This 424-nucleotide RNA sequence from Roseobacter sp. MED193 belongs to the Rfam family "Bacterial RNase P class A". Taxonomically the source falls in Roseobacter (Bacteria, Pseudomonadati, Pseudomonadota, Roseobacteraceae). The sequence is in the family's curated seed alignment. The family's consensus secondary structure is taken from published work. Rfam classes the family as a ribozyme.
RNA sequence: GCAGAAGGCUGGACGACCGCGCUAAGGGCUUGCCCCUUGCGAGGAAAGUCCGGACUCCCUAAAGCAACGGUGCCGGGUAACGCCCGGGCGGGGUAACUCGACGGAUAGCGCCACAGAAACAAACCGCCAUGCCGCGGGGGCCUUCGGGCAACCGUAUCCGGUUUGGUAAGGGUGAAACGGUGGGGUAAGAGCCCACCGCGCCGCUGGCAACAGGGGUGGCAAGGCAAGCCCCACCGGGAGCAAUGCCAAAUAGGGUCCCCGUGUGGGAGAGAGCGGCGUUGGCCGAUCUCGCCACUAGGCUUGCUUUAGCCGAGAGGGACCGGGUUGGCAGCUAGAGGUGCAUAGCAAUAUGUACCGCAGAGGAAUGGUCGUCUAAGGAGCGAAAGCUCUGGGACAAAAUCCGGCUUACAGGCCUUCUGCGCAU
Numbered sequence: 001g002c003a004g005a006a007g008g009c010u011g012g013a014c015g016a017c018c019g020c021g022c023u024a025a026g027g028g029c030u031u032g033c034c035c036c037u038u039g040c041g042a043g044g045a046a047a048g049u050c051c052g053g054a055c056u057c058c059c060u061a062a063a064g065c066a067a068c069g070g071u072g073c074c075g076g077g078u079a080a081c082g083c084c085c086g087g088g089c090g091g092g093g094u095a096a097c098u099c100g101a102c103g104g105a106u107a108g109c110g111c112c113a114c115a116g117a118a119a120c121a122a123a124c125c126g127c128c129a130u131g132c133c134g135c136g137g138g139g140g141c142c143u144u145c146g147g148g149c150a151a152c153c154g155u156a157u158c159c160g161g162u163u164u165g166g167u168a169a170g171g172g173u174g175a176a177a178c179g180g181u182g183g184g185g186u187a188a189g190a191g192c193c194c195a196c197c198g199c200g201c202c203g204c205u206g207g208c209a210a211c212a213g214g215g216g217u218g219g220c221a222a223g224g225c226a227a228g229c230c231c232c233a234c235c236g237g238g239a240g241c242a243a244u245g246c247c248a249a250a251u252a253g254g255g256u257c258c259c260c261g262u263g264u265g266g267g268a269g270a271g272a273g274c275g276g277c278g279u280u281g282g283c284c285g286a287u288c289u290c291g292c293c294a295c296u297a298g299g300c301u302u303g304c305u306u307u308a309g310c311c312g313a314g315a316g317g318g319a320c321c322g323g324g325u326u327g328g329c330a331g332c333u334a335g336a337g338g339u340g341c342a343u344a345g346c347a348a349u350a351u352g353u354a355c356c357g358c359a360g361a362g363g364a365a366u367g368g369u370c371g372u373c374u375a376a377g378g379a380g381c382g383a384a385a386g387c388u389c390u391g392g393g394a395c396a397a398a399a400u401c402c403g404g405c406u407u408a409c410a411g412g413c414c415u416u417c418u419g420c421g422c423a424u
Stems, first nucleotide, its partner, number of pairs: 001420010011409001012373007020041003024037001026035003046407003050404005055240004066306001068236005073087005088102001089100004103231002108229002110225003124171002126167004131162004179197006198220001199218004204213003244330004254321006300314004337356008